RNA: mir-969 microRNA precursor family
RNA sequence: CUGUUUUACGUGCGAGUUCCACUAAGCAAGUUUUGAGAAUUUUUUAAAAACAAAAACUUGACACGUUGAGCUCGUCCGUGGGGCAG
Numbered sequence: 001c002u003g004u005u006u007u008a009c010g011u012g013c014g015a016g017u018u019c020c021a022c023u024a025a026g027c028a029a030g031u032u033u034u035g036a037g038a039a040u041u042u043u044u045u046a047a048a049a050a051c052a053a054a055a056a057c058u059u060g061a062c063a064c065g066u067u068g069a070g071c072u073c074g075u076c077c078g079u080g081g082g083g084c085a086g
Base pairs, nucleotide, nucleotide: 001086002085003084004083005082006081007080008079009078010077012075013074014073015072016071017070018069019068021066022065027060028059029058030057031056032055033054034053